[Rfam]
RNA sequence: CCAGGCGGCCGGGUGACCGCUGGCCCGGGAGUGAUCCCGGGCUGGAGGAAAGUCCGGGCUCCACGGAUAGACGGUGCCGGUUAACGACCGGCGGGGUGGCCUUCGGGCUGCUUCAGGGACAGUGCCACAGAAAGCAAACCGCCCGGGUCCGCCCGGGUCAGGGUGAAAGGGUGCGGUAAGAGCGCACCGCGCUGCCGGCAACGGCGGCGGCAAGGCAAACCCCACCGGGAGCAAGGCCGAAUAGGGGCAGCCGUGCGCAAGCACAGGGGUAUCCGCCCCGCUGCCCGGGUUGGCCGCGUGAGGUGUGUCGCGAGACACAUCCCAGAGGAAUGGUCAUCCAUGUGGGUUAUCCACAGGACAGAACCCGGCUUACAGGCCGCCUGGCGCU
Numbered sequence: 001c002c003a004g005g006c007g008g009c010c011g012g013g014u015g016a017c018c019g020c021u022g023g024c025c026c027g028g029g030a031g032u033g034a035u036c037c038c039g040g041g042c043u044g045g046a047g048g049a050a051a052g053u054c055c056g057g058g059c060u061c062c063a064c065g066g067a068u069a070g071a072c073g074g075u076g077c078c079g080g081u082u083a084a085c086g087a088c089c090g091g092c093g094g095g096g097u098g099g100c101c102u103u104c105g106g107g108c109u110g111c112u113u114c115a116g117g118g119a120c121a122g123u124g125c126c127a128c129a130g131a132a133a134g135c136a137a138a139c140c141g142c143c144c145g146g147g148u149c150c151g152c153c154c155g156g157g158u159c160a161g162g163g164u165g166a167a168a169g170g171g172u173g174c175g176g177u178a179a180g181a182g183c184g185c186a187c188c189g190c191g192c193u194g195c196c197g198g199c200a201a202c203g204g205c206g207g208c209g210g211c212a213a214g215g216c217a218a219a220c221c222c223c224a225c226c227g228g229g230a231g232c233a234a235g236g237c238c239g240a241a242u243a244g245g246g247g248c249a250g251c252c253g254u255g256c257g258c259a260a261g262c263a264c265a266g267g268g269g270u271a272u273c274c275g276c277c278c279c280g281c282u283g284c285c286c287g288g289g290u291u292g293g294c295c296g297c298g299u300g301a302g303g304u305g306u307g308u309c310g311c312g313a314g315a316c317a318c319a320u321c322c323c324a325g326a327g328g329a330a331u332g333g334u335c336a337u338c339c340a341u342g343u344g345g346g347u348u349a350u351c352c353a354c355a356g357g358a359c360a361g362a363a364c365c366c367g368g369c370u371u372a373c374a375g376g377c378c379g380c381c382u383g384g385c386g387c388u
Stems, first nucleotide, its partner, number of pairs: 001384010011373001012338007020045009050371003054368005059231004069272001072227005077091005092116001093114009117222002122220002124216003139162002141158007170188006189211001190209008235295004245286006266279005302321008
RNA: Bacterial RNase P class A
Organism: Rhodovarius crocodyli